[Rfam]
RNA sequence: GCCACAUUAUGUUUUCAUUUUGAAAGGUAAGGGCUUUGCGCAAUGACGACUUGAAUCUAUCACCCUUGACUGAUGGCU
Numbered sequence: 001g002c003c004a005c006a007u008u009a010u011g012u013u014u015u016c017a018u019u020u021u022g023a024a025a026g027g028u029a030a031g032g033g034c035u036u037u038g039c040g041c042a043a044u045g046a047c048g049a050c051u052u053g054a055a056u057c058u059a060u061c062a063c064c065c066u067u068g069a070c071u072g073a074u075g076g077c078u
Stems, first nucleotide, its partner, number of pairs: 001077004031041001033039002
RNA: Small nucleolar RNA SNORD83
Organism: Vicugna pacos